[Rfam]
RNA sequence: CGUAGAGUAAAUAUUGUGCGUUAAGUGCAUUGGGAUGGGAUGUUGCCCAAUGACGAAAGAAAAUGAAUGUCAAGUAAUUUUAUGACACUUUCGGUUUCCUGCGAUACAAUAUUGCGUCCACUACU
Numbered sequence: 001c002g003u004a005g006a007g008u009a010a011a012u013a014u015u016g017u018g019c020g021u022u023a024a025g026u027g028c029a030u031u032g033g034g035a036u037g038g039g040a041u042g043u044u045g046c047c048c049a050a051u052g053a054c055g056a057a058a059g060a061a062a063a064u065g066a067a068u069g070u071c072a073a074g075u076a077a078u079u080u081u082a083u084g085a086c087a088c089u090u091u092c093g094g095u096u097u098c099c100u101g102c103g104a105u106a107c108a109a110u111a112u113u114g115c116g117u118c119c120a121c122u123a124c125u
Stems, first nucleotide, its partner, number of pairs: 002124004010113009019103003025054002028052007038119005058100002061097004